A member of the RNA family "Fluoride riboswitch aptamer (crcB RNA motif)" from Cupriavidus sp. USMAA2-4, 86 nucleotides long. The family's consensus secondary structure is taken from published work. Rfam links the family to the GO terms response to fluoride and positive regulation of gene expression. Taxonomically the source falls in Cupriavidus (Bacteria, Pseudomonadati, Pseudomonadota, Burkholderiales). A search with the family's covariance model found it, with a score of 43 bits.

[Rfam]
RNA sequence: UGUAUGCGUGGAGAUGGCAUACCUCCACCCCAGAAGUAGAGCUGGGAAAACCGCACUUUCAAAGUGCUGAUGAUGCCUACAGGUCC
Numbered sequence: 001u002g003u004a005u006g007c008g009u010g011g012a013g014a015u016g017g018c019a020u021a022c023c024u025c026c027a028c029c030c031c032a033g034a035a036g037u038a039g040a041g042c043u044g045g046g047a048a049a050a051c052c053g054c055a056c057u058u059u060c061a062a063a064g065u066g067c068u069g070a071u072g073a074u075g076c077c078u079a080c081a082g083g084u085c086c
Stems, first nucleotide, its partner, number of pairs: 010026004016077005053067004